[Rfam]
A member of the RNA family "Small nucleolar RNA SNORA72" from Cavia porcellus, 132 nucleotides long. From the family's description: U72 is a member of the H/ACA class of snoRNAs. The snoRNA gene is located in intron 4 of the ribosomal L30 protein gene in human, mouse and chicken. Its family is annotated with RNA processing and nucleolus in the Gene Ontology. On this family, see Ganot et al., Genes Dev 1997: "The family of box ACA small nucleolar RNAs is defined by an evolutionarily conserved secondary structure and ubiquitous sequence elements essential for RNA accumulation". By type it is an H/ACA-box small nucleolar RNA.

RNA sequence: CUGCAAAUAUUCUCGCUGUUCUGAUUGUGUCAUAAUCAGGGCAGGCUAAACAUUUGCUAUAGUAAGACCAUGCAUGUGUCCCCAGACCUUGAUCUUUCCCUAGGUCUGGUUUUAUAAAUGCUGCUGAUAAAU
Numbered sequence: 001c002u003g004c005a006a007a008u009a010u011u012c013u014c015g016c017u018g019u020u021c022u023g024a025u026u027g028u029g030u031c032a033u034a035a036u037c038a039g040g041g042c043a044g045g046c047u048a049a050a051c052a053u054u055u056g057c058u059a060u061a062g063u064a065a066g067a068c069c070a071u072g073c074a075u076g077u078g079u080c081c082c083c084a085g086a087c088c089u090u091g092a093u094c095u096u097u098c099c100c101u102a103g104g105u106c107u108g109g110u111u112u113u114a115u116a117a118a119u120g121c122u123g124c125u126g127a128u129a130a131a132u
Stems, first nucleotide, its partner, number of pairs: 003057003016044011067125001069123002072121002082109008091100001